[Rfam]
RNA sequence: CACCUACACGGGGAUGGAGUUCCCCGGCAUCCGGGGCCCUGUGCGCCGGUACAAACUGCCCCUGGGCUGAUGACUCCUGCCGACGG
Numbered sequence: 001c002a003c004c005u006a007c008a009c010g011g012g013g014a015u016g017g018a019g020u021u022c023c024c025c026g027g028c029a030u031c032c033g034g035g036g037c038c039c040u041g042u043g044c045g046c047c048g049g050u051a052c053a054a055a056c057u058g059c060c061c062c063u064g065g066g067c068u069g070a071u072g073a074c075u076c077c078u079g080c081c082g083a084c085g086g
Base pairs, nucleotide, nucleotide: 010025011024012023013022016077017076018075019074020073021072058067059066060065
The record is an 86-nucleotide RNA sequence from Desulfoluna spongiiphila, which matches "Fluoride riboswitch aptamer (crcB RNA motif)" in Rfam. For this family Rfam cites "Fluoride ion encapsulation by Mg2+ ions and phosphates in a fluoride riboswitch" (Ren et al., Nature, 2012). Lineage of the source: Bacteria > Pseudomonadati > Desulfobacterales > Desulfolunaceae > Desulfoluna.